[Rfam]
RNA: Lysine riboswitch aptamer
Organism: Lachnoclostridium sp. An76
RNA sequence: AACGGAGAUAGAGGUCGCAUUUUUCAUAAGUAAGACGGCGGAUGUGCCAGGCACAUGAGAAGCCGCCUGAAAGGGGAAGAUGCCGAAGGGAGAAAGCGCCUGGAGCUUUGUCCCUGGGCAUGGCGUGAAUAACGGCAUGACUGUCAUCGCAGGAUGGAGAGCUAUCUGAUAU
Numbered sequence: 001a002a003c004g005g006a007g008a009u010a011g012a013g014g015u016c017g018c019a020u021u022u023u024u025c026a027u028a029a030g031u032a033a034g035a036c037g038g039c040g041g042a043u044g045u046g047c048c049a050g051g052c053a054c055a056u057g058a059g060a061a062g063c064c065g066c067c068u069g070a071a072a073g074g075g076g077a078a079g080a081u082g083c084c085g086a087a088g089g090g091a092g093a094a095a096g097c098g099c100c101u102g103g104a105g106c107u108u109u110g111u112c113c114c115u116g117g118g119c120a121u122g123g124c125g126u127g128a129a130u131a132a133c134g135g136c137a138u139g140a141c142u143g144u145c146a147u148c149g150c151a152g153g154a155u156g157g158a159g160a161g162c163u164a165u166c167u168g169a170u171a172u
Stems, first nucleotide, its partner, number of pairs: 006167006017083009033068002036065004087115005093109005116142002119139004124134003144157005